[Rfam]
RNA sequence: CGUUAAUAGUUAAGUUUACCGAAGACAGUAGGUGACAUCUCGUCGUAAACCCUACCGAGGACUUUUAUUGGUGUAUAUCAAUAGACCCUCUAUGUCUGCGGUGGCAUAGAGUUUUUUUAUUGAAAAA
Number, nucleotide and partner (000 for none) at each position: 001c000002g000003u000004u000005a000006a000007u000008a000009g000010u000011u000012a000013a000014g000015u000016u000017u000018a000019c000020c000021g000022a000023a000024g000025a000026c000027a000028g055029u054030a053031g052032g051033u000034g044035a043036c042037a000038u000039c000040u000041c000042g036043u035044c034045g000046u000047a000048a000049a000050c000051c032052c031053u030054a029055c028056c000057g000058a000059g000060g000061a000062c000063u000064u000065u000066u000067a000068u000069u000070g000071g000072u000073g000074u000075a000076u000077a000078u000079c000080a000081a000082u000083a000084g000085a000086c000087c000088c111089u110090c109091u108092a107093u106094g105095u104096c103097u000098g000099c000100g000101g000102u000103g096104g095105c094106a093107u092108a091109g090110a089111g088112u000113u000114u000115u000116u000117u000118u000119a000120u000121u000122g000123a000124a000125a000126a000127a000